Rfam assigns this 376-nucleotide sequence from Nodosilinea sp. LEGE 07088 to the family "Bacterial RNase P class A".
Rfam's curators write: Ribonuclease P (RNase P) is a ubiquitous endoribonuclease, found in archaea, bacteria and eukarya as well as chloroplasts and mitochondria.
Pairs were carried over by alignment from the consensus structure, which is taken from published work.
RNA sequence: GGAGGUAGUGUAGGUGGUUGCGGACUGGCCUAGGUCAGUCUGAGGAAAGUCCGGGCUCCCGAAAGACCAGACUUGCUGGGUAACGCCCAGUGCGGGCGACCGUGAGGAGAGUGCCACAGAAACAUACCGCCGAUGGCCCUCAGGAAUUUUCUAAGGGCACAGGUAAGGGUGCAAGGGUGCGGUAAGAGCGCACCAGCAGCAUCGAGAGGUGCUGGCUCGGUAAACCCCGGUUGGGUGCAAGGUCAAGGGGCAAGGUUGGUCUUUUUCCGGCCCUGUUGUAAGUACCGCAAGAGGCGUUUGGUAACAAGCGUCCCAGAUAGAUAACCGCCCCUCCGGCAACGGAGGAACAGAACCCGGCUUAUGUCUACCUCCUUCC
Numbered sequence: 001g002g003a004g005g006u007a008g009u010g011u012a013g014g015u016g017g018u019u020g021c022g023g024a025c026u027g028g029c030c031u032a033g034g035u036c037a038g039u040c041u042g043a044g045g046a047a048a049g050u051c052c053g054g055g056c057u058c059c060c061g062a063a064a065g066a067c068c069a070g071a072c073u074u075g076c077u078g079g080g081u082a083a084c085g086c087c088c089a090g091u092g093c094g095g096g097c098g099a100c101c102g103u104g105a106g107g108a109g110a111g112u113g114c115c116a117c118a119g120a121a122a123c124a125u126a127c128c129g130c131c132g133a134u135g136g137c138c139c140u141c142a143g144g145a146a147u148u149u150u151c152u153a154a155g156g157g158c159a160c161a162g163g164u165a166a167g168g169g170u171g172c173a174a175g176g177g178u179g180c181g182g183u184a185a186g187a188g189c190g191c192a193c194c195a196g197c198a199g200c201a202u203c204g205a206g207a208g209g210u211g212c213u214g215g216c217u218c219g220g221u222a223a224a225c226c227c228c229g230g231u232u233g234g235g236u237g238c239a240a241g242g243u244c245a246a247g248g249g250g251c252a253a254g255g256u257u258g259g260u261c262u263u264u265u266u267c268c269g270g271c272c273c274u275g276u277u278g279u280a281a282g283u284a285c286c287g288c289a290a291g292a293g294g295c296g297u298u299u300g301g302u303a304a305c306a307a308g309c310g311u312c313c314c315a316g317a318u319a320g321a322u323a324a325c326c327g328c329c330c331c332u333c334c335g336g337c338a339a340c341g342g343a344g345g346a347a348c349a350g351a352a353c354c355c356g357g358c359u360u361a362u363g364u365c366u367a368c369c370u371c372c373u374u375c376c
Base pairs, nucleotide, nucleotide: 001372002371003370004369005368006367007366008365012362013329014328015327016326017325018324019323021042022041023040024039025038026037027036028035029034047360048359049358051357052356053355054354055353056237058235059234065267066266070232071231072230074229075228076090077089078088079087080086091105092103093102094101095100106227107226111225112224113221114220115219127168128167129164130163131162134159135158137156176194177193178192179191180190181189196216197214198213199212200211201210202209203208241286242285243284244282250276255274258272259271260270261269293312294311295310296309297308298307299306300305